[Rfam]
Shown here is a 357-nucleotide RNA sequence from Brachybacterium sp. SGAir0954, a member of the family "Bacterial RNase P class A". Rfam classes the family as a ribozyme. A search with the family's covariance model found it, with a score of 295 bits.
RNA sequence: CCAGUCGGCCGGGCAGUCGCGUCCCCGCACUCGUGCGGGGCCGAGGAAAGUCCGGGCUCCGUCUGGCACGGUGGUGGGUAACGCCCACCCGGAGUGAUCCGCGGGACAGUGCCACAGAGAGCAGACCGCCUCCCCGCCCUCGGGCGGGGCGGUAAGGGUGAAAGGGUGGUGCAAGAGACCACCGCGGUCUCGGUGACGAGGCCGGCACGGUAAACCCCACCGGGAGCAAGGUCGGACAGGACGCGUUCGAGGGUGCCAGCCCGAGCGUCCGGGUGGACCGCUGGAGGUCGUCGGCAACGGCGAUCCGAGAGGGAUGACUGUCGAACACAGAACCCGGCUUACAGGCCGGCUGGUCCG
Numbered sequence: 001c002c003a004g005u006c007g008g009c010c011g012g013g014c015a016g017u018c019g020c021g022u023c024c025c026c027g028c029a030c031u032c033g034u035g036c037g038g039g040g041c042c043g044a045g046g047a048a049a050g051u052c053c054g055g056g057c058u059c060c061g062u063c064u065g066g067c068a069c070g071g072u073g074g075u076g077g078g079u080a081a082c083g084c085c086c087a088c089c090c091g092g093a094g095u096g097a098u099c100c101g102c103g104g105g106a107c108a109g110u111g112c113c114a115c116a117g118a119g120a121g122c123a124g125a126c127c128g129c130c131u132c133c134c135c136g137c138c139c140u141c142g143g144g145c146g147g148g149g150c151g152g153u154a155a156g157g158g159u160g161a162a163a164g165g166g167u168g169g170u171g172c173a174a175g176a177g178a179c180c181a182c183c184g185c186g187g188u189c190u191c192g193g194u195g196a197c198g199a200g201g202c203c204g205g206c207a208c209g210g211u212a213a214a215c216c217c218c219a220c221c222g223g224g225a226g227c228a229a230g231g232u233c234g235g236a237c238a239g240g241a242c243g244c245g246u247u248c249g250a251g252g253g254u255g256c257c258a259g260c261c262c263g264a265g266c267g268u269c270c271g272g273g274u275g276g277a278c279c280g281c282u283g284g285a286g287g288u289c290g291u292c293g294g295c296a297a298c299g300g301c302g303a304u305c306c307g308a309g310a311g312g313g314a315u316g317a318c319u320g321u322c323g324a325a326c327a328c329a330g331a332a333c334c335c336g337g338c339u340u341a342c343a344g345g346c347c348g349g350c351u352g353g354u355c356c357g
Stems, first nucleotide, its partner, number of pairs: 001353010011342001012322007020043002023040006048340003052337005057226004064258004069222005074088005089103001090101004104217002109215002111211003126157002128153003132149007165183006184206001185204008230279004239270006251262004286305008
Dot-bracket structure: ((((((((((((((((((.((.((((((......)))))).))....[[[.[[[[[((((...[[[[.((((((((((.....)))))(((((....)))).)((...(((((............(((((.(((((((....))))))).)))..)).......((((((.......))))))(((((((((....)))))))).)..)))..)))))))))))))...((((.....((((((......((((]]]]))))..)))))).....))))......((((((((....))))))))..........)))))))..........]]]]]]]].).))))))))))....